[Rfam]
RNA: Purine riboswitch aptamer
Organism: Cohnella abietis
RNA sequence: GAUGUUUAUGAUUAAUCAACUCGUAUAAUUGAGGGAAUAUGGCCCUCAAGUCUCUACUGGACGACCAUUAAAUCGACCAACUAUGAGUGAAAUAUUGCAUCUA
Numbered sequence: 001g002a003u004g005u006u007u008a009u010g011a012u013u014a015a016u017c018a019a020c021u022c023g024u025a026u027a028a029u030u031g032a033g034g035g036a037a038u039a040u041g042g043c044c045c046u047c048a049a050g051u052c053u054c055u056a057c058u059g060g061a062c063g064a065c066c067a068u069u070a071a072a073u074c075g076a077c078c079a080a081c082u083a084u085g086a087g088u089g090a091a092a093u094a095u096u097g098c099a100u101c102u103a
Base pairs, nucleotide, nucleotide: 019088020087021086022085023084024083025082029049030048031047032046033045034044035043058079059078060077062075063074064073